[Rfam]
Shown here is a 93-nucleotide sequence from Drosophila grimshawi, a member of the family "mir-282 microRNA precursor family". Gene Ontology terms of the family: miRNA-mediated post-transcriptional gene silencing and RISC complex. Pairs were carried over by alignment from the consensus structure, which was predicted with RNAalifold. On this family, see Li et al., BMC Genomics 2009: "Direct sequencing and expression analysis of a large number of miRNAs in Aedes aegypti and a multi-species survey of novel mosquito miRNAs". Taxonomically the source falls in Hawaiian Drosophila (Eukaryota, Diptera, Brachycera, Cyclorrhapha). Rfam's curators put it in the seed alignment.
RNA sequence: UUCCUUAUAAAUCUAGCCUCUACUAGGCUUUGUCUGUGCACUUUUUCAAUUCAAUCAGACAUAGCCUAUGAGAGGUUAGGUGUACAAAUGGAU
Numbered sequence: 001u002u003c004c005u006u007a008u009a010a011a012u013c014u015a016g017c018c019u020c021u022a023c024u025a026g027g028c029u030u031u032g033u034c035u036g037u038g039c040a041c042u043u044u045u046u047c048a049a050u051u052c053a054a055u056c057a058g059a060c061a062u063a064g065c066c067u068a069u070g071a072g073a074g075g076u077u078a079g080g081u082g083u084a085c086a087a088a089u090g091g092a093u
Stems, first nucleotide, its partner, number of pairs: 011081009026066004031061005